[Rfam]
RNA sequence: GCAGAGCAGCGGCCAUGCCCGCUGGUGCUUGUGCCUGGGGACGCCGCGCAUUGGUGCGGCGAACUACAUAGGC
Numbered sequence: 001g002c003a004g005a006g007c008a009g010c011g012g013c014c015a016u017g018c019c020c021g022c023u024g025g026u027g028c029u030u031g032u033g034c035c036u037g038g039g040g041a042c043g044c045c046g047c048g049c050a051u052u053g054g055u056g057c058g059g060c061g062a063a064c065u066a067c068a069u070a071g072g073c
Stems, first nucleotide, its partner, number of pairs: 001028003008023005033073005042061006
The family of this 73-nucleotide RNA from Comamonas suwonensis is "Burkholderiales-2 RNA". NCBI's taxonomy places the organism under Bacteria, Pseudomonadati, Pseudomonadota, Betaproteobacteria, Comamonas. It is annotated as a cis-regulatory element.